A member of the RNA family "Guanidine-II riboswitch aptamer (mini-ykkC)" from Oceanospirillum linum, 45 nucleotides long. A search with the family's covariance model found it, with a score of 43 bits. Simpler in structure and has fewer highly conserved nucleotide positions than the ykkC-yxkD leader. Despite this each of its two stem-loop structures directly bind free guanidine. Therefore, mini-ykkC RNA motif represents a distinct class of guanidine-sensing RNAs. Its crystal structure was also determined. Pairs were carried over by alignment from the consensus structure, which is taken from published work.
RNA sequence: AAGUGAGGACGACCUCACCGCUCAAUCUCGUUAGGGGACGGCCCC
Number, nucleotide and partner (000 for none) at each position: 001a000002a000003g018004u017005g016006a015007g014008g013009a000010c000011g000012a000013c008014c007015u006016c005017a004018c003019c000020g000021c000022u000023c000024a000025a000026u000027c000028u000029c000030g000031u000032u000033a000034g045035g044036g043037g042038a000039c000040g000041g000042c037043c036044c035045c034